[Rfam]
RNA sequence: UGCCUAAACCCAUCGAUUUUUCAAUGGGCAUGGCUCAAAACCACAGACAUACUGAACCCGUCGUUCAGGCCCCAUGUCUGUGGUCAUAUCUCGAAAGGGAUAUGGAGGCGAAAGCCUC
Numbered sequence: 001u002g003c004c005u006a007a008a009c010c011c012a013u014c015g016a017u018u019u020u021u022c023a024a025u026g027g028g029c030a031u032g033g034c035u036c037a038a039a040a041c042c043a044c045a046g047a048c049a050u051a052c053u054g055a056a057c058c059c060g061u062c063g064u065u066c067a068g069g070c071c072c073c074a075u076g077u078c079u080g081u082g083g084u085c086a087u088a089u090c091u092c093g094a095a096a097g098g099g100a101u102a103u104g105g106a107g108g109c110g111a112a113a114g115c116c117u118c
Stems, first nucleotide, its partner, number of pairs: 002034003009028005015022001041083010052068006085104008105118005
RNA: LOOT RNA